[Rfam]
RNA sequence: AGGUGCGCUUGUUCGCUGAGGCUCCUUCGCGGAAACAGGCCAGCGACCCCGAACGUCGAGAGACGCCAAGGGUCAGGACAGAUUCAUUCGGAUCAAGGGUGAGUCCCGAUUGGCUCCCGUCGUCGUACGGGUGACGCCGCGAAGUGCCAAAGGUCUGACGAGGAGACGUAGGA
Numbered sequence: 001a002g003g004u005g006c007g008c009u010u011g012u013u014c015g016c017u018g019a020g021g022c023u024c025c026u027u028c029g030c031g032g033a034a035a036c037a038g039g040c041c042a043g044c045g046a047c048c049c050c051g052a053a054c055g056u057c058g059a060g061a062g063a064c065g066c067c068a069a070g071g072g073u074c075a076g077g078a079c080a081g082a083u084u085c086a087u088u089c090g091g092a093u094c095a096a097g098g099g100u101g102a103g104u105c106c107c108g109a110u111u112g113g114c115u116c117c118c119g120u121c122g123u124c125g126u127a128c129g130g131g132u133g134a135c136g137c138c139g140c141g142a143a144g145u146g147c148c149a150a151a152g153g154u155c156u157g158a159c160g161a162g163g164a165g166a167c168g169u170a171g172g173a
Stems, first nucleotide, its partner, number of pairs: 005169003009165002011159002013096001015154003020148003025144008039114005045074005054065004081105004087099003116131003
Background:
Shown here is a 173-nucleotide sequence from Gordonia polyisoprenivorans, a member of the family "M-box riboswitch aptamer (ykoK leader)". Taxonomically the source falls in Gordonia polyisoprenivorans (Bacteria, Mycobacteriales, Gordoniaceae, Gordonia). Pairs were carried over by alignment from the consensus structure.